[Rfam]
RNA sequence: GCCUGUUCUCAGGGCGGGGCGAAAUUCCCCACCGGCGGUAUGCGGGGCGUGUCCCCGUCAGCCCGCGAGCGGCUUUUCGGGGCGUGAACCCACAGCCAAUGAGGCGAACAUCGGUUCCGGUGGCUUGGACAAGCGCGUCCACAGCCCGAAAAGUGGGAACCGGUUUUCGGAUCAAGCUGUGGAGCAGUCAGGAAAGUGACAAGCAGAUCUGGUGAGAGGCCAGAGCCGACGGUUAUAGUCCGGAUGGAAGAGAACGUGC
Numbered sequence: 001g002c003c004u005g006u007u008c009u010c011a012g013g014g015c016g017g018g019g020c021g022a023a024a025u026u027c028c029c030c031a032c033c034g035g036c037g038g039u040a041u042g043c044g045g046g047g048c049g050u051g052u053c054c055c056c057g058u059c060a061g062c063c064c065g066c067g068a069g070c071g072g073c074u075u076u077u078c079g080g081g082g083c084g085u086g087a088a089c090c091c092a093c094a095g096c097c098a099a100u101g102a103g104g105c106g107a108a109c110a111u112c113g114g115u116u117c118c119g120g121u122g123g124c125u126u127g128g129a130c131a132a133g134c135g136c137g138u139c140c141a142c143a144g145c146c147c148g149a150a151a152a153g154u155g156g157g158a159a160c161c162g163g164u165u166u167u168c169g170g171a172u173c174a175a176g177c178u179g180u181g182g183a184g185c186a187g188u189c190a191g192g193a194a195a196g197u198g199a200c201a202a203g204c205a206g207a208u209c210u211g212g213u214g215a216g217a218g219g220c221c222a223g224a225g226c227c228g229a230c231g232g233u234u235a236u237a238g239u240c241c242g243g244a245u246g247g248a249a250g251a252g253a254a255c256g257u258g259c
Stems, first nucleotide, its partner, number of pairs: 004256007017029003031239002033228002035066004061226002069204002208224005230242003
This 259-nucleotide sequence from Phaeobacter gallaeciensis belongs to the Rfam family "FMN riboswitch aptamer (RFN element)". Rfam links the family to the GO term FMN binding. Pairs were carried over by alignment from the consensus structure, which is taken from published work. NCBI's taxonomy places the organism under Bacteria, Pseudomonadota, Alphaproteobacteria, Roseobacteraceae, Phaeobacter.